[Rfam]
This 74-nucleotide RNA sequence from Clupea harengus belongs to the Rfam family "Small nucleolar RNA SNORD59".
Rfam classes the family as a C/D-box small nucleolar RNA.
For this family Rfam cites "Purified box C/D snoRNPs are able to reproduce site-specific 2'-O-methylation of target RNA in vitro" (Galardi et al., Mol Cell Biol, 2002).
Gene Ontology terms of the family: nucleolus and RNA processing.
The family is grouped with related families in Rfam's "SNORD59 clan".
The base pairs follow the family's consensus structure, which was predicted with ILM.
RNA sequence: UCUUUGUUUAUGACUUUCAGUAUGACUUUUGUUCUUCUGAAUCUGCUGAGGCCAGUUUUUCUGCCCUAAGAAGA
Numbered sequence: 001u002c003u004u005u006g007u008u009u010a011u012g013a014c015u016u017u018c019a020g021u022a023u024g025a026c027u028u029u030u031g032u033u034c035u036u037c038u039g040a041a042u043c044u045g046c047u048g049a050g051g052c053c054a055g056u057u058u059u060u061c062u063g064c065c066c067u068a069a070g071a072a073g074a
Stems, first nucleotide, its partner, number of pairs: 001074003005070001